The family of this 93-nucleotide sequence from Adiantum capillus-veneris is "Small nucleolar RNA SNORD24". Rfam links the family to the GO terms RNA processing and nucleolus. Taxonomically the source falls in Adiantum (Eukaryota, Streptophyta, Polypodiopsida, Pteridaceae). The family has 14 seed sequences and 2,843 matches in Rfam 15.1. It is annotated as a C/D-box small nucleolar RNA. The base pairs follow the family's consensus structure, which was predicted with PFOLD. A reference for the family is Qu et al. (1995), "U24, a novel intron-encoded small nucleolar RNA with two 12 nt long, phylogenetically conserved complementarities to 28S rRNA", Nucleic Acids Res.
RNA sequence: GGCCUGUGAUGCAUAAAUCUGAUUAUAUUUGCUACUCUGGACGGCCUCCUUGGCCGCUUGCUGAUGGUUUUAUUCACCAAGAUCUCUGAGGCC
Numbered sequence: 001g002g003c004c005u006g007u008g009a010u011g012c013a014u015a016a017a018u019c020u021g022a023u024u025a026u027a028u029u030u031g032c033u034a035c036u037c038u039g040g041a042c043g044g045c046c047u048c049c050u051u052g053g054c055c056g057c058u059u060g061c062u063g064a065u066g067g068u069u070u071u072a073u074u075c076a077c078c079a080a081g082a083u084c085u086c087u088g089a090g091g092c093c
Stems, first nucleotide, its partner, number of pairs: 001093004